The record is an 89-nucleotide RNA from Tetracentron sinense, which matches "Small nucleolar RNA SNORD34" in Rfam. On this family, see Galardi et al., Mol Cell Biol 2002: "Purified box C/D snoRNPs are able to reproduce site-specific 2'-O-methylation of target RNA in vitro". Lineage of the source: Eukaryota > Embryophyta > Trochodendrales > Trochodendraceae > Tetracentron. It is annotated as a C/D-box small nucleolar RNA. A search with the family's covariance model found it, with a score of 46 bits. Gene Ontology terms of the family: nucleolus and RNA processing. The family is grouped with related families in Rfam's "SNORD34 clan". Rfam's curators write: snoRNA U34 is found in intron 5 of the ribosomal protein L13a gene in humans.
Nucleotides: 089
Stems, first nucleotide, its partner, number of pairs: 001089002004086004
Number, partner (000 for none) and nucleotide at each position: 001089g002088g003000a004086g005085g006084c007083c008000g009000a010000u011000g012000a013000u014000g015000a016000u017000g018000u019000g020000u021000u022000g023000a024000a025000c026000a027000u028000u029000g030000c031000c032000u033000a034000c035000a036000u037000c038000g039000u040000u041000u042000g043000a044000u045000g046000c047000u048000a049000u050000u051000g052000u053000c054000g055000c056000a057000u058000a059000u060000g061000a062000u063000a064000a065000u066000a067000a068000u069000u070000u071000g072000c073000a074000u075000g076000c077000a078000a079000c080000u081000g082000a083007g084006g085005c086004c087000u088002c089001u